A member of the RNA family "6S / SsrS RNA" from Clostridium sp. BL8, 195 nucleotides long.
RNA sequence: AAUGAUCUGCUGUGUGCGCGGAACUGGUCUAUGUUGAGCCAACAGUGAUUUAAUUGGAAGAAGUUCUUUUUAUGAAGUGUAGACCUGUCACUUAUUAUUAAUAUUAACUGAUGGGUACCAGAAGUAAAAAGGCGGAAUCCACCCGUGGGAGAACGGGUUCAAAUAUACCAGCAUAAACGGCACAGCGGUUUAUAU
Numbered sequence: 001a002a003u004g005a006u007c008u009g010c011u012g013u014g015u016g017c018g019c020g021g022a023a024c025u026g027g028u029c030u031a032u033g034u035u036g037a038g039c040c041a042a043c044a045g046u047g048a049u050u051u052a053a054u055u056g057g058a059a060g061a062a063g064u065u066c067u068u069u070u071u072a073u074g075a076a077g078u079g080u081a082g083a084c085c086u087g088u089c090a091c092u093u094a095u096u097a098u099u100a101a102u103a104u105u106a107a108c109u110g111a112u113g114g115g116u117a118c119c120a121g122a123a124g125u126a127a128a129a130a131g132g133c134g135g136a137a138u139c140c141a142c143c144c145g146u147g148g149g150a151g152a153a154c155g156g157g158u159u160c161a162a163a164u165a166u167a168c169c170a171g172c173a174u175a176a177a178c179g180g181c182a183c184a185g186c187g188g189u190u191u192a193u194a195u
Stems, first nucleotide, its partner, number of pairs: 002193004007188009017179002031166004035161006056140003063133003067130007079118002084114002
Pairs were carried over by alignment from the consensus structure, which is taken from published work.